Source information
The family of this 497-nucleotide sequence from Mustela putorius is "FGF-2 internal ribosome entry site (IRES)". It scores 328 bits against the family's covariance model. About the family: This family represents the fibroblast growth factor 2 (FGF-2) internal ribosome entry site (IRES). The base pairs follow the family's consensus structure, which was predicted with PFOLD. Rfam links the family to the GO term ribosome binding.

RNA sequence: CUGAGGCCAAAGCUCCCGACCCAGAGGCCGGCCCCAGAAAGCCCGCAGCGAGUAGGGGGCGGCGCGCAGGAAGGGAGGAGGGCCGGGGGCGUGUGUGGGGGGGUGGGUGUUCGGGGGUGGAGAUGUAGAAGAUGUGACGCCGCGGCCCGGCCGGUGCCAGACCAGCCGACGCGGUGCCGCGGUUGCUGCCGGAUCCAGGGCGCUGCAGCUACGGCAGGCGGCCCUCCCGAGAGCGGCGGCCGCGGAGACACCCAUCCCUAAACCCCAGCUCCCGAGCCCCGCGGCGCCCCGUGCUCUAGGGCAGCGGAAGAGGGAAGCGGCGGAGCGGCUCCAGGCUGGGGGCCCACGGGCGCGGCCGCGCGCUGCCGGGCGGGAGGCUGGGGGGCCGGGGCCGUGGCCGUGCCCCGGACCGGGUCGGGGGCCGGGGCCGGGGGGCGGCGGCUCCCCGCGCGGCUCCAGGGGCGCGGGCACCCCGGCAGAGCGCCGGCGGAGCCAUG
Number, nucleotide and partner (000 for none) at each position: 001c000002u000003g000004a000005g000006g000007c000008c000009a000010a000011a000012g000013c000014u000015c000016c000017c000018g000019a000020c000021c000022c000023a000024g000025a000026g000027g000028c000029c388030g387031g386032c385033c384034c383035c382036a000037g000038a000039a000040a000041g000042c000043c373044c372045g371046c000047a000048g000049c000050g000051a000052g000053u000054a000055g000056g000057g000058g367059g366060c365061g364062g363063c362064g361065c360066g359067c358068a000069g000070g000071a000072a000073g000074g000075g000076a000077g000078g000079a000080g000081g000082g000083c268084c000085g266086g265087g264088g263089g000090c000091g259092u000093g257094u000095g000096u000097g000098g000099g000100g000101g000102g000103g000104u254105g253106g252107g251108u250109g249110u000111u000112c000113g000114g000115g000116g000117g000118u000119g000120g000121a000122g000123a000124u000125g000126u000127a000128g000129a000130a000131g000132a000133u000134g000135u000136g000137a000138c000139g000140c000141c000142g000143c000144g000145g000146c192147c191148c000149g000150g180151c179152c000153g178154g177155u176156g175157c174158c173159a000160g000161a000162c000163c000164a000165g000166c000167c000168g000169a000170c000171g000172c000173g158174g157175u156176g155177c154178c153179g151180c150181g000182g000183u000184u000185g000186c000187u000188g000189c000190c000191g147192g146193a000194u000195c000196c000197a000198g241199g240200g000201c238202g237203c236204u235205g234206c233207a000208g000209c000210u000211a000212c000213g228214g227215c000216a225217g224218g223219c000220g000221g000222c000223c218224c217225u216226c000227c214228c213229g000230a000231g000232a000233g206234c205235g204236g203237c202238g201239g000240c199241c198242g000243c000244g000245g000246a000247g000248a000249c109250a108251c107252c106253c105254a104255u000256c000257c093258c000259u091260a000261a000262a000263c088264c087265c086266c085267a000268g083269c000270u000271c000272c000273c000274g331275a330276g329277c328278c327279c000280c306281g305282c304283g000284g302285c301286g000287c000288c000289c000290c000291g000292u000293g000294c000295u000296c000297u000298a000299g000300g000301g285302c284303a000304g282305c281306g280307g000308a000309a000310g000311a000312g000313g000314g000315a000316a000317g000318c000319g000320g000321c000322g000323g000324a000325g000326c000327g278328g277329c276330u275331c274332c000333a000334g000335g000336c000337u000338g000339g000340g000341g000342g000343c000344c000345c000346a000347c000348g000349g000350g000351c000352g000353c000354g000355g000356c000357c000358g067359c066360g065361c064362g063363c062364u061365g060366c059367c058368g000369g000370g000371c045372g044373g043374g000375a000376g000377g000378c000379u000380g000381g000382g035383g034384g033385g032386c031387c030388g029389g000390g000391g000392c000393c000394g000395u000396g000397g000398c000399c000400g000401u000402g000403c000404c414405c413406c412407g411408g000409a000410c000411c407412g406413g405414g404415u000416c000417g000418g000419g000420g000421g000422c000423c000424g485425g484426g000427g482428c481429c000430g000431g477432g000433g000434g000435g000436c000437g000438g000439c000440g000441g000442c000443u000444c000445c000446c000447c000448g465449c464450g463451c462452g000453g000454c000455u000456c000457c000458a000459g000460g000461g000462g451463c450464g449465c448466g474467g473468g472469c000470a000471c000472c468473c467474c466475g000476g000477c431478a000479g000480a000481g428482c427483g000484c425485c424486g000487g000488c000489g000490g000491a000492g000493c000494c000495a000496u000497g000